The family of this 73-nucleotide sequence from Pomacea canaliculata is "mir-252 microRNA precursor family".
[Rfam]
RNA sequence: GCCCAUUACUAAGUACUAGUGCCGCGGGAAGAUAACUUGUCAUGUCCCGUGGUUCUGGUCCUUACUACAGGGC
Numbered sequence: 001g002c003c004c005a006u007u008a009c010u011a012a013g014u015a016c017u018a019g020u021g022c023c024g025c026g027g028g029a030a031g032a033u034a035a036c037u038u039g040u041c042a043u044g045u046c047c048c049g050u051g052g053u054u055c056u057g058g059u060c061c062u063u064a065c066u067a068c069a070g071g072g073c
Base pairs, nucleotide, nucleotide: 001073002072003071004070007067010064011063012062013061015059016058017057018056019055024050025049026048027047028046029045

Pairs were carried over by alignment from the consensus structure, which was predicted with RNAalifold. A search with the family's covariance model found it, with a score of 47 bits.